[Rfam]
RNA sequence: AUACUUACAUGGCAGAGGAGAUACCAUGAUCACAUGGUUCUCUCAAGGCAGAGGUCAUCCAAAGCACUCAGGUCUUUCUGACACCUGCAAUUUCCUCAAGCAGGGGAACUCAGCUGCGCAAUUUCUGUUCGUGGGGAAUUUCGCACUGUCCCCC
Numbered sequence: 001a002u003a004c005u006u007a008c009a010u011g012g013c014a015g016a017g018g019a020g021a022u023a024c025c026a027u028g029a030u031c032a033c034a035u036g037g038u039u040c041u042c043u044c045a046a047g048g049c050a051g052a053g054g055u056c057a058u059c060c061a062a063a064g065c066a067c068u069c070a071g072g073u074c075u076u077u078c079u080g081a082c083a084c085c086u087g088c089a090a091u092u093u094c095c096u097c098a099a100g101c102a103g104g105g106g107a108a109c110u111c112a113g114c115u116g117c118g119c120a121a122u123u124u125c126u127g128u129u130c131g132u133g134g135g136g137a138a139u140u141u142c143g144c145a146c147u148g149u150c151c152c153c154c
Base pairs, nucleotide, nucleotide: 012117013116014115015114017043018042019041020040021039023038024037025036026035027034045086047084052079053078054077057075059072060071090110091108092106093105095103096102133153134152135151136150137149139148